The record is a 98-nucleotide RNA from Thermoactinomyces daqus, which matches "SAM riboswitch aptamer (S box leader)" in Rfam.
RNA sequence: UCCUCAUGAAGAGAGAGGGAGGGACUGGCCCGAUGAACUCUCGGCAACCGGCGGAUGCUUGGUGCCAAGUCCAGAGAACGUUUGUUCAAAGAUGAGGA
Numbered sequence: 001u002c003c004u005c006a007u008g009a010a011g012a013g014a015g016a017g018g019g020a021g022g023g024a025c026u027g028g029c030c031c032g033a034u035g036a037a038c039u040c041u042c043g044g045c046a047a048c049c050g051g052c053g054g055a056u057g058c059u060u061g062g063u064g065c066c067a068a069g070u071c072c073a074g075a076g077a078a079c080g081u082u083u084g085u086u087c088a089a090a091g092a093u094g095a096g097g098a
Stems, first nucleotide, its partner, number of pairs: 001098007013042005021031003025074004043066004048062002050059003070090001076087004

NCBI's taxonomy places the organism under Bacteria, Bacillati, Caryophanales, Thermoactinomycetaceae, Thermoactinomyces. A search with the family's covariance model found it, with a score of 76 bits.